[Rfam]
RNA sequence: GGUCUGCUCUCACCACACAUGACAGGGACGGGGGACCCACGUACGUGGACACCACGGUGUCCUUGGGGUGAAGCCGAACAGCAGGUCCGUUCGGCCGGGUCAGUCUCCGACCCGAACCCGACAGCUCACCUCGCAGGCGUCCUGGAGAUCUGCC
Dot-bracket structure: ....((((....((..........))..(((((....((........................))(((.....((((((.........))))))..((((.........))))...))).........)))))..))))...............
A member of the RNA family "c-di-AMP riboswitch aptamer (ydaO/yuaA leader)" from Antribacter soli, 154 nucleotides long.
Taxonomically the source falls in Antribacter (Bacteria, Bacillati, Actinomycetota, Micrococcales).